This 83-nucleotide RNA sequence from Bacillus mesophilus belongs to the Rfam family "c-di-GMP-I riboswitch aptamer". A search with the family's covariance model found it, with a score of 63 bits.
RNA sequence: ACGUGAUAAAGGCAAACCCAUUGAAAAAUGGAGACGCAAAGCUAGAGGGACUACGUCGAUUGAUAGGUCAGCCAGCCGCCCCA
Numbered sequence: 001a002c003g004u005g006a007u008a009a010a011g012g013c014a015a016a017c018c019c020a021u022u023g024a025a026a027a028a029u030g031g032a033g034a035c036g037c038a039a040a041g042c043u044a045g046a047g048g049g050a051c052u053a054c055g056u057c058g059a060u061u062g063a064u065a066g067g068u069c070a071g072c073c074a075g076c077c078g079c080c081c082c083a
Stems, first nucleotide, its partner, number of pairs: 012037002018031005041076003047073002049069003056063002

Rfam describes the family as follows. GEMM was predicted in a large-scale screen for bacterial structured RNA regulatory elements.